Shown here is an 86-nucleotide RNA from Triparma strigata, a member of the family "Selenocysteine transfer RNA". Taxonomically the source falls in Triparma (Eukaryota, Sar, Stramenopiles, Bolidophyceae). A search with the family's covariance model found it, with a score of 69 bits. Rfam links the family to the GO term triplet codon-amino acid adaptor activity.

[Rfam]
RNA sequence: GCGGGAAUGACCUCUGAGAGUUCAGAGCGCGGACUUCAAAUCCGUGGGGUUCUAACGGACCAGUGGUGCGACUCCACCUUUCCCGC
Number, nucleotide and partner (000 for none) at each position: 001g086002c085003g084004g083005g082006a081007a080008u000009g078010a000011c000012c027013u026014c025015u024016g023017a022018g000019a000020g000021u000022u017023c016024a015025g014026a013027g012028c046029g045030c044031g043032g042033a041034c000035u000036u000037c000038a000039a000040a000041u033042c032043c031044g030045u029046g028047g000048g061049g060050u059051u058052c057053u000054a000055a000056c000057g052058g051059a050060c049061c048062a000063g077064u076065g075066g074067u000068g000069c000070g000071a000072c000073u000074c066075c065076a064077c063078c009079u000080u007081u006082c005083c004084c003085g002086c001